[Rfam]
RNA sequence: AAAAAACUUACUAUUAUAUUUGUAACAAAUUUUAUACAUAAGAUAAAUUCGUAUGUAUAGCCGUUCUGCUCGAAACGGUAUAGCACCGUAAUGGUGGUAUUAUGAAUUGUAGCAAGGUGCGAGGCUACCUUUAAAAGUCUUGGAGGUGCUCUGAGUGGGUACUUUAUUAGGGUUAUAAUUUAGAAAGUAAGCUAAAACUCUAGGUGUUGGGCAGGGCUAACACUGGCAUAUAAUUAAAUAUGCGAUAAAGUAAGU
Numbered sequence: 001a002a003a004a005a006a007c008u009u010a011c012u013a014u015u016a017u018a019u020u021u022g023u024a025a026c027a028a029a030u031u032u033u034a035u036a037c038a039u040a041a042g043a044u045a046a047a048u049u050c051g052u053a054u055g056u057a058u059a060g061c062c063g064u065u066c067u068g069c070u071c072g073a074a075a076c077g078g079u080a081u082a083g084c085a086c087c088g089u090a091a092u093g094g095u096g097g098u099a100u101u102a103u104g105a106a107u108u109g110u111a112g113c114a115a116g117g118u119g120c121g122a123g124g125c126u127a128c129c130u131u132u133a134a135a136a137g138u139c140u141u142g143g144a145g146g147u148g149c150u151c152u153g154a155g156u157g158g159g160u161a162c163u164u165u166a167u168u169a170g171g172g173u174u175a176u177a178a179u180u181u182a183g184a185a186a187g188u189a190a191g192c193u194a195a196a197a198c199u200c201u202a203g204g205u206g207u208u209g210g211g212c213a214g215g216g217c218u219a220a221c222a223c224u225g226g227c228a229u230a231u232a233a234u235u236a237a238a239u240a241u242g243c244g245a246u247a248a249a250g251u252a253a254g255u
Base pairs, nucleotide, nucleotide: 007191008190009189010188011187012186033059034058035057036056037055038054039053040052061078062077063076064075065074080100081099082098084096085095086094087093088092115130116129117128118127121141122140123139124138125137148217149216150215151214152213153212160252161251162250163249164248165247166246167245168244169201170200171199172198173197179196180195181194182193183192203224204223205222206221207220208219226243227242228241229240230239231238